[Rfam]
RNA sequence: UCUAACUUAAGCAACGCGAACCCUACCUACUUUCGCGUCCUUGUAGCCCUAUAGCCACGCCAGUAUGAAUAAGUAUCUUCAAAAACAC
Numbered sequence: 001u002c003u004a005a006c007u008u009a010a011g012c013a014a015c016g017c018g019a020a021c022c023c024u025a026c027c028u029a030c031u032u033u034c035g036c037g038u039c040c041u042u043g044u045a046g047c048c049c050u051a052u053a054g055c056c057a058c059g060c061c062a063g064u065a066u067g068a069a070u071a072a073g074u075a076u077c078u079u080c081a082a083a084a085a086c087a088c
Base pairs, nucleotide, nucleotide: 036067037066040063041062042059043058044057046055047054